[Rfam]
RNA sequence: UACUCCCUAAUGACGGGAACCGUGCUGGUUUCGAACUCGGUAAUAGACCAGAAGAAAGCUAUCACCGGGUGGAAACUGGUACGGGUCCCCGAGUCGUGC
Numbered sequence: 001u002a003c004u005c006c007c008u009a010a011u012g013a014c015g016g017g018a019a020c021c022g023u024g025c026u027g028g029u030u031u032c033g034a035a036c037u038c039g040g041u042a043a044u045a046g047a048c049c050a051g052a053a054g055a056a057a058g059c060u061a062u063c064a065c066c067g068g069g070u071g072g073a074a075a076c077u078g079g080u081a082c083g084g085g086u087c088c089c090c091g092a093g094u095c096g097u098g099c
Stems, first nucleotide, its partner, number of pairs: 015089004020084002023081010034070001036068001038067001040065002043062003
The family of this 99-nucleotide RNA from Caenorhabditis remanei is "mir-36 microRNA precursor family". Taxonomically the source falls in Caenorhabditis (Eukaryota, Eumetazoa, Chromadorea, Rhabditina). The literature on the family includes a 2004 paper in RNA by Ohler et al., "Patterns of flanking sequence conservation and a characteristic upstream motif for microRNA gene identification". Rfam 15.1 lists 199 matches to the family in 31 species. The sequence is in the family's curated seed alignment.